[Rfam]
The record is a 381-nucleotide sequence from Citromicrobium sp. RCC1897, which matches "Bacterial RNase P class A" in Rfam. Lineage of the source: Bacteria > Pseudomonadota > Sphingomonadales > Sphingomonadaceae > Citromicrobium. Rfam's curators write: Ribonuclease P (RNase P) is a ubiquitous endoribonuclease, found in archaea, bacteria and eukarya as well as chloroplasts and mitochondria. Its best characterised activity is the generation of mature 5'-ends of tRNAs by cleaving the 5'-leader elements of precursor-tRNAs. Cellular RNase Ps are ribonucleoproteins. The family's consensus secondary structure is taken from published work. Rfam links the family to the GO terms ribonuclease P activity, tRNA processing and dimeric ribonuclease P complex. The match comes from Rfam's covariance-model search (302 bits).
RNA sequence: CCAGGAGGCCGGGCAGCCGCGUUGCGACAAGCACCGAGGAAAGUCCGGGCUCCACGAAGUAAGGGUGGCGGGUAACGCCCGCCGUGGGCGACCACAGGGAAAGUGCCACAGAGAGCAAACCGCCGACGUUCCUGCACAGGAGCGGGCAAGGGUGAAAGGGUGCGGUAAGAGCGCACCGGGGGCCUGGUAACAGAUCCCGUCAUGGCAAACCCCACCCGGAGCAAGGCCGAAUAGGGACCCCGCGCCACUCGUGGCAGGAGCGCUUCGCUCUUGAGGGUCCGGGUUGGCUGCUCGAACCGUCUGGCAACAGGCGGUCUAGAUGAAUGGCUGCCACCCGUCGCAAGACGGGUACAGAACCCGGCUUACAGGCCUCCUGGCACC
Number, nucleotide and partner (000 for none) at each position: 001c377002c376003a375004g374005g373006a372007g371008g370009c369010c368011g366012g332013g331014c330015a329016g328017c327018c326019g000020c036021g035022u000023u033024g032025c031026g000027a000028c000029a000030a000031g025032c024033a023034c000035c021036g020037a000038g000039g000040a000041a364042a363043g362044u000045c361046c360047g359048g358049g357050c221051u220052c219053c218054a000055c000056g000057a000058a000059g265060u000061a000062a000063g217064g216065g215066u214067g213068g082069c081070g080071g079072g078073u000074a000075a000076c000077g000078c072079c071080c070081g069082c068083c097084g095085u094086g093087g092088g000089c000090g000091a000092c087093c086094a085095c084096a000097g083098g212099g211100a000101a000102a000103g210104u209105g206106c205107c204108a000109c000110a000111g000112a000113g000114a000115g000116c000117a000118a000119a000120c151121c150122g147123c146124c145125g000126a000127c144128g143129u142130u141131c140132c139133u000134g000135c000136a000137c000138a000139g132140g131141a130142g129143c128144g127145g124146g123147c122148a000149a000150g121151g120152g000153u000154g000155a000156a000157a000158g000159g177160g176161u175162g174163c173164g172165g000166u000167a000168a000169g000170a000171g000172c164173g163174c162175a161176c160177c159178g201179g198180g197181g196182g195183c000184c193185u192186g191187g000188u000189a000190a000191c186192a185193g184194a000195u182196c181197c180198c179199g000200u000201c178202a000203u000204g107205g106206c105207a000208a000209a104210c103211c099212c098213c067214a066215c065216c064217c063218g053219g052220a051221g050222c000223a000224a000225g289226g288227c287228c286229g000230a000231a000232u000233a000234g000235g280236g279237a278238c277239c276240c275241c000242g000243c000244g000245c000246c000247a000248c000249u000250c000251g000252u000253g000254g000255c000256a000257g271258g270259a269260g268261c267262g000263c000264u000265u059266c000267g261268c260269u259270c258271u257272u000273g000274a000275g240276g239277g238278u237279c236280c235281g000282g000283g000284u000285u000286g228287g227288c226289u225290g000291c000292u000293c000294g000295a000296a315297c314298c313299g312300u311301c310302u309303g308304g000305c000306a000307a000308c303309a302310g301311g300312c299313g298314g297315u296316c000317u000318a000319g000320a000321u000322g000323a000324a000325u000326g018327g017328c016329u015330g014331c013332c012333a000334c000335c000336c000337g000338u000339c000340g000341c000342a000343a000344g000345a000346c000347g000348g000349g000350u000351a000352c000353a000354g000355a000356a000357c049358c048359c047360g046361g045362c043363u042364u041365a000366c011367a000368g010369g009370c008371c007372u006373c005374c004375u003376g002377g001378c000379a000380c000381c000